Notes
The family of this 86-nucleotide sequence from Pangasianodon hypophthalmus is "mir-135 microRNA precursor family". The organism belongs to Pangasianodon, within Eukaryota. The match comes from Rfam's covariance-model search (72 bits). The family's consensus secondary structure was predicted with PFOLD.
Nucleotides: 086
Stems, first nucleotide, its partner, number of pairs: 002085004007080001009079006016072008026063001028061010
Number, partner (000 for none) and nucleotide at each position: 001000u002085c003084a004083c005082u006000g007080c008000u009079g010078u011077g012076u013075u014074u015000u016072a017071u018070g019069g020068c021067u022066u023065u024000c025000u026063a027000u028061u029060c030059c031058u032057a033056u034055g035054u036053g037052a038000u039000u040000u041000u042000c043000u044000c045000u046000g047000c048000c049000a050000u051000g052037u053036c054035a055034c056033a057032u058031a059030g060029g061028g062000u063026u064000c065023a066022a067021a068020g069019c070018c071017a072016u073000u074014g075013g076012g077011u078010a079009c080007g081000g082005a083004g084003u085002g086000a

Rfam 15.1 lists 2,125 matches to the family in 647 species.